[Rfam]
RNA sequence: CAUUCGUGUCGCCACACCCGUCGCGAGGCGGGGUCGGAAAGCUUCGGGUCUCGAUGCUUGUAAGCAUUAGAGAUGGCCGGGCCGCCUCC
Numbered sequence: 001c002a003u004u005c006g007u008g009u010c011g012c013c014a015c016a017c018c019c020g021u022c023g024c025g026a027g028g029c030g031g032g033g034u035c036g037g038a039a040a041g042c043u044u045c046g047g048g049u050c051u052c053g054a055u056g057c058u059u060g061u062a063a064g065c066a067u068u069a070g071a072g073a074u075g076g077c078c079g080g081g082c083c084g085c086c087u088c089c
Stems, first nucleotide, its partner, number of pairs: 012037002017032006041082003045079003048074003055066004
RNA: c-di-GMP-I riboswitch aptamer